[Rfam]
RNA sequence: GACGUCUUUCUUCGUGGGGGAGCUCGACCCCCGCAACCGUUGAUGAUGGGCUUCCUCGACACGAUGCGUGCCGAGGGACAUGCGGUCGAGUCGAUCUGUCGGGUGCUGCGCGAGCAGGGCUGUCAGAGCGCCGCA
Numbered sequence: 001g002a003c004g005u006c007u008u009u010c011u012u013c014g015u016g017g018g019g020g021a022g023c024u025c026g027a028c029c030c031c032c033g034c035a036a037c038c039g040u041u042g043a044u045g046a047u048g049g050g051c052u053u054c055c056u057c058g059a060c061a062c063g064a065u066g067c068g069u070g071c072c073g074a075g076g077g078a079c080a081u082g083c084g085g086u087c088g089a090g091u092c093g094a095u096c097u098g099u100c101g102g103g104u105g106c107u108g109c110g111c112g113a114g115c116a117g118g119g120c121u122g123u124c125a126g127a128g129c130g131c132c133g134c135a
Stems, first nucleotide, its partner, number of pairs: 016032005081135005092130002095127004100122002
Dot-bracket structure: ...............(((((.......)))))................................................(((((......((.((((.((...................)).)))).)))))))

Description: Rfam assigns this 135-nucleotide RNA sequence from Nocardioides daedukensis to the family "ALIL pseudoknot". For this family Rfam cites "Apical loop-internal loop RNA pseudoknots: a new type of stimulator of -1 translational frameshifting in bacteria" (Mazauric et al., J Biol Chem, 2008). The family's RNA type in Rfam is cis-regulatory element. NCBI's taxonomy places the organism under Bacteria, Bacillati, Propionibacteriales, Nocardioidaceae, Nocardioides.